[Rfam]
RNA: U4 spliceosomal RNA
Organism: Gouania willdenowi
RNA sequence: AGCUUUGCGCAGUGGCAGUAUCGUAGCCUAUGAGGUUUAUCCGAGGUGCGAUUAUUGCUAGUUGAAAACUUUACCCAAUACCCCGCCAUGACGGCUUGAAAUACAGCCGGCUACGGCAAUUUUUGACGGUCUCUACGGAGC
Numbered sequence: 001a002g003c004u005u006u007g008c009g010c011a012g013u014g015g016c017a018g019u020a021u022c023g024u025a026g027c028c029u030a031u032g033a034g035g036u037u038u039a040u041c042c043g044a045g046g047u048g049c050g051a052u053u054a055u056u057g058c059u060a061g062u063u064g065a066a067a068a069c070u071u072u073a074c075c076c077a078a079u080a081c082c083c084c085g086c087c088a089u090g091a092c093g094g095c096u097u098g099a100a101a102u103a104c105a106g107c108c109g110g111c112u113a114c115g116g117c118a119a120u121u122u123u124u125g126a127c128g129g130u131c132u133c134u135a136c137g138g139a140g141c
Stems, first nucleotide, its partner, number of pairs: 020052005026047003034042002085117003090111001092109005131140003
Dot-bracket structure: ...................(((((.(((.....((.....))..))))))))................................(((..(.(((((........))))).)...))).............(((....))).